Nucleotides: 133
Base pairs, nucleotide, nucleotide: 003060004059005058006057007056008055019043020042023038024037025036026035027034072126073125074124075123076122087112088111089110090109091108092107094106095105096104
Number, partner (000 for none) and nucleotide at each position: 001000c002000c003060g004059c005058a006057a007056g008055c009000c010000u011000u012000c013000c014000a015000g016000c017000g018000g019043g020042g021000g022000g023038g024037g025036g026035c027034c028000u029000g030000g031000c032000g033000u034027g035026g036025c037024c038023c039000c040000c041000g042020c043019c044000a045000u046000u047000c048000c049000u050000g051000c052000a053000g054000c055008g056007c057006u058005u059004g060003c061000c062000a063000g064000a065000g066000c067000a068000g069000c070000c071000c072126u073125g074124g075123g076122g077000c078000g079000g080000u081000u082000u083000g084000a085000g086000g087112c088111c089110u090109c091108u092107c093000c094106c095105u096104g097000c098000c099000g100000u101000u102000c103000c104096c105095a106094g107092g108091a109090g110089a111088g112087g113000u114000u115000a116000u117000a118000g119000a120000c121000a122076c123075c124074c125073c126072g127000g128000a129000c130000a131000u132000c133000c